[Rfam]
RNA sequence: AGCAGAGUAGGUCUGUGUGCGUUAAGUGUCAGUUGGACGGGGAGUUGCCAGCUGAACGAAAAACAGGGAUUCCUGUUUGCGGUACACAGACCGCAUCCCGCUGCA
Numbered sequence: 001a002g003c004a005g006a007g008u009a010g011g012u013c014u015g016u017g018u019g020c021g022u023u024a025a026g027u028g029u030c031a032g033u034u035g036g037a038c039g040g041g042g043a044g045u046u047g048c049c050a051g052c053u054g055a056a057c058g059a060a061a062a063a064c065a066g067g068g069a070u071u072c073c074u075g076u077u078u079g080c081g082g083u084a085c086a087c088a089g090a091c092c093g094c095a096u097c098c099c100g101c102u103g104c105a
Stems, first nucleotide, its partner, number of pairs: 002104004010092010020081003026057002029055008040098003044094001061078006